[Rfam]
Description
The record is a 57-nucleotide sequence from Spirodela intermedia, which matches "Plastid-ndhJ 3UTR RNA" in Rfam. It scores 52 bits against the family's covariance model. Rfam's curators write: Plastid ndhJ is a non-coding RNA (ncRNA) present in plastids. The base pairs follow the family's consensus structure, which was predicted with LocARNA. The family has 50 seed sequences and 869 matches in Rfam 15.1.
RNA sequence: CCAUGAACUUUGUACCGCGCAUAUCACGUAGAUAAAUCCCAGAAAGUAAAACAAGUA
Numbered sequence: 001c002c003a004u005g006a007a008c009u010u011u012g013u014a015c016c017g018c019g020c021a022u023a024u025c026a027c028g029u030a031g032a033u034a035a036a037u038c039c040c041a042g043a044a045a046g047u048a049a050a051a052c053a054a055g056u057a
Stems, first nucleotide, its partner, number of pairs: 019037001022034004